RNA sequence: UGCUCCGAUGGGGCGGGAGGUCUUCCCAAGGAACGAGAGGGUGAAAGGACCCCCACCAAACCCCACCCUCUACCCCGCAGGACGCUCUCACUCGCGCGGGUGAACAUCUCCAACUCAGGUGGAUUUCGCACCGGUUGCCUGCCCUACGCUCGGCGCGACACAACCGCAGACAUGCGACGGCCCUCGCCGGGACUGCAAUCCCAGUGCGAGGGCCUGACCAUCAAGGAAGUAAAGGGCUUCCCG
Numbered sequence: 001u002g003c004u005c006c007g008a009u010g011g012g013g014c015g016g017g018a019g020g021u022c023u024u025c026c027c028a029a030g031g032a033a034c035g036a037g038a039g040g041g042u043g044a045a046a047g048g049a050c051c052c053c054c055a056c057c058a059a060a061c062c063c064c065a066c067c068c069u070c071u072a073c074c075c076c077g078c079a080g081g082a083c084g085c086u087c088u089c090a091c092u093c094g095c096g097c098g099g100g101u102g103a104a105c106a107u108c109u110c111c112a113a114c115u116c117a118g119g120u121g122g123a124u125u126u127c128g129c130a131c132c133g134g135u136u137g138c139c140u141g142c143c144c145u146a147c148g149c150u151c152g153g154c155g156c157g158a159c160a161c162a163a164c165c166g167c168a169g170a171c172a173u174g175c176g177a178c179g180g181c182c183c184u185c186g187c188c189g190g191g192a193c194u195g196c197a198a199u200c201c202c203a204g205u206g207c208g209a210g211g212g213c214c215u216g217a218c219c220a221u222c223a224a225g226g227a228a229g230u231a232a233a234g235g236g237c238u239u240c241c242c243g
Stems, first nucleotide, its partner, number of pairs: 007222004016075002019073001088103006118154001120152003179214005185208003189202004225241005
Description
A member of the RNA family "Streptomyces sRNA 4677" from Streptomyces lincolnensis, 243 nucleotides long. NCBI's taxonomy places the organism under Bacteria, Bacillati, Actinomycetes, Kitasatosporales, Streptomyces. A search with the family's covariance model found it, with a score of 216 bits. From the family's description: Located in the intergenic region between anti-sigma factor SCO4677 gene and a putative regulatory protein gene SCO4676. scr4677 expression requires the SCO4677 activity and scr4677 sRNA itself seem to affect the levels of the SCO4676-associated transcripts.